[Rfam]
This 66-nucleotide RNA from Mesocricetus auratus belongs to the Rfam family "Small nucleolar RNA SNORD109A". The organism belongs to Mesocricetus, within Eukaryota. Rfam's curators write: Humans have two copies of the SNORD109 gene, SNORD109A and SNORD109B. The family is grouped with related families in Rfam's "SNORD74 clan". Rfam classes the family as a C/D-box small nucleolar RNA. For this family Rfam cites "The IC-SNURF-SNRPN transcript serves as a host for multiple small nucleolar RNA species and as an antisense RNA for UBE3A" (Runte et al., Hum Mol Genet, 2001). Its family is annotated with RNA processing and nucleolus in the Gene Ontology. A search with the family's covariance model found it, with a score of 54 bits.

Nucleotides: 066
Stems, first nucleotide, its partner, number of pairs: 001066005
Number, partner (000 for none) and nucleotide at each position: 001066g002065g003064a004063u005062c006000a007000a008000u009000g010000a011000u012000g013000a014000c015000a016000a017000a018000a019000a020000g021000u022000c023000u024000c025000u026000g027000a028000g029000c030000a031000c032000g033000g034000u035000g036000a037000u038000c039000a040000a041000c042000u043000c044000a045000g046000g047000a048000c049000u050000a051000u052000g053000c054000c055000a056000a057000u058000c059000u060000g061000a062005g063004g064003u065002c066001c